[Rfam]
This 132-nucleotide RNA sequence from Cavia porcellus belongs to the Rfam family "Small nucleolar RNA SNORA61".
Rfam describes the family as follows. ACA61 is a member of the H/ACA class of snoRNA that guide the sites of modification of uridines to pseudouridines.
It is annotated as an H/ACA-box small nucleolar RNA.
It scores 101 bits against the family's covariance model.
Lineage of the source: Eukaryota > Opisthokonta > Bilateria > Amniota > Cavia.
The family has 25 seed sequences and 881 matches in Rfam 15.1.
RNA sequence: ACCCUCCAGUUCUUUUUCCCAUUGAAUCUAAACACUGGGCUUGGUGGUUGUAAAGGAUGAAAAGGAAUGCUGAAACUGGCCUCACAGCCUUUAUAGCCUGGUAUAUUGCAUGUGGGCUAGUUUCAAAAGGGU
Numbered sequence: 001a002c003c004c005u006c007c008a009g010u011u012c013u014u015u016u017u018c019c020c021a022u023u024g025a026a027u028c029u030a031a032a033c034a035c036u037g038g039g040c041u042u043g044g045u046g047g048u049u050g051u052a053a054a055g056g057a058u059g060a061a062a063a064g065g066a067a068u069g070c071u072g073a074a075a076c077u078g079g080c081c082u083c084a085c086a087g088c089c090u091u092u093a094u095a096g097c098c099u100g101g102u103a104u105a106u107u108g109c110a111u112g113u114g115g116g117c118u119a120g121u122u123u124c125a126a127a128a129g130g131g132u
Stems, first nucleotide, its partner, number of pairs: 003059001005057003019047005027038002076120007092110001094108001